[Rfam]
RNA sequence: CACUUUUAAAAAGCGCCUGAACUAAGCAAGGAGAGAUUGCUUAGUUGACGAGGAGGAGGUUUAUCGAGAUUUCGGCGGAUGCCUCCCGGCUGAACGUGCACAGCCGCAGAAAUUUUCACCUUAAAACAGCGGGGUAACCUGUUGCACAAAGGGUGGAAAAUGCACACAU
Numbered sequence: 001c002a003c004u005u006u007u008a009a010a011a012a013g014c015g016c017c018u019g020a021a022c023u024a025a026g027c028a029a030g031g032a033g034a035g036a037u038u039g040c041u042u043a044g045u046u047g048a049c050g051a052g053g054a055g056g057a058g059g060u061u062u063a064u065c066g067a068g069a070u071u072u073c074g075g076c077g078g079a080u081g082c083c084u085c086c087c088g089g090c091u092g093a094a095c096g097u098g099c100a101c102a103g104c105c106g107c108a109g110a111a112a113u114u115u116u117c118a119c120c121u122u123a124a125a126a127c128a129g130c131g132g133g134g135u136a137a138c139c140u141g142u143u144g145c146a147c148a149a150a151g152g153g154u155g156g157a158a159a160a161u162g163c164a165c166a167c168a169u
Stems, first nucleotide, its partner, number of pairs: 020046008029037001055086005064075004087106006113159007127144007
This 169-nucleotide RNA sequence from Bacillus sp. V5-8f belongs to the Rfam family "glmS glucosamine-6-phosphate activated ribozyme aptamer". A search with the family's covariance model found it, with a score of 134 bits. It is annotated as a riboswitch. This entry contains a glucosamine-6-phosphate activated ribozyme that is found in the mRNA for GlmS. GlmS is an enzyme that uses fructose-6-phosphate and glutamine to generate glucosamine-6-phosphate.